[Rfam]
RNA: mir-231 microRNA precursor family
Organism: Scyliorhinus torazame
RNA sequence: UAUUGUCCUGCCUGUUCUGGCAGUUCAUAUAUAUAUAUAUAUAUAUGAACUGCCAGAACAGGCAGGACAAUAC
Numbered sequence: 001u002a003u004u005g006u007c008c009u010g011c012c013u014g015u016u017c018u019g020g021c022a023g024u025u026c027a028u029a030u031a032u033a034u035a036u037a038u039a040u041a042u043a044u045a046u047g048a049a050c051u052g053c054c055a056g057a058a059c060a061g062g063c064a065g066g067a068c069a070a071u072a073c
Base pairs, nucleotide, nucleotide: 002071003070004069005068006067007066008065009064010063012061013060014059015058016057017056018055019054022051023050024049025048026047027046028045029044030043031042032041
Dot-bracket structure: .(((((((((.((((((((..(((((((((((........)))))))))))..)))))))).)))))))))..